[Rfam]
RNA sequence: AAUUAAAUAGAUUACAACACUCAUAUAAUCGUGGGGAUAUGGCCCGCAAGUUUCUACCGGAUUUCCGUAAAAAGUCCGACUAUGAGUGAGUCAUACAACCAG
Numbered sequence: 001a002a003u004u005a006a007a008u009a010g011a012u013u014a015c016a017a018c019a020c021u022c023a024u025a026u027a028a029u030c031g032u033g034g035g036g037a038u039a040u041g042g043c044c045c046g047c048a049a050g051u052u053u054c055u056a057c058c059g060g061a062u063u064u065c066c067g068u069a070a071a072a073a074g075u076c077c078g079a080c081u082a083u084g085a086g087u088g089a090g091u092c093a094u095a096c097a098a099c100c101a102g
Base pairs, nucleotide, nucleotide: 018088019087020086021085022084023083024082025081029049031047032046033045034044035043058078059077060076061075062074063073064072
The family of this 102-nucleotide sequence from Bacillus sp. DNRA2 is "Purine riboswitch aptamer". The source organism's lineage runs through Bacteria, Bacillati, Bacillota, Bacilli and Bacillus. It scores 90 bits against the family's covariance model. Pairs were carried over by alignment from the consensus structure, which is taken from published work.